[Rfam]
RNA sequence: AAACCAUCCAGAGCGGCCGAGAGAUCUGGCUCUACGACGUCGCGGCAACCACCCAUUGGGGCACGGUGCUACUGCCAGAAACGAUGGAGA
Numbered sequence: 001a002a003a004c005c006a007u008c009c010a011g012a013g014c015g016g017c018c019g020a021g022a023g024a025u026c027u028g029g030c031u032c033u034a035c036g037a038c039g040u041c042g043c044g045g046c047a048a049c050c051a052c053c054c055a056u057u058g059g060g061g062c063a064c065g066g067u068g069c070u071a072c073u074g075c076c077a078g079a080a081a082c083g084a085u086g087g088a089g090a
Base pairs, nucleotide, nucleotide: 004087005086006085007084008083013043014042015041016040017039021032022031023030026078027077028076029075044070045069046068047067049066050065052061053060054059074082
A member of the RNA family "SAM riboswitch aptamer (S box leader)" from Glutamicibacter creatinolyticus, 90 nucleotides long. The base pairs follow the family's consensus structure, which is taken from published work. The source organism's lineage runs through Bacteria, Actinomycetes, Micrococcales, Micrococcaceae and Glutamicibacter. Rfam's curators write: The SAM riboswitch is found upstream of a number of genes which code for proteins involved in methionine or cysteine biosynthesis in Gram-positive bacteria. It scores 58 bits against the family's covariance model.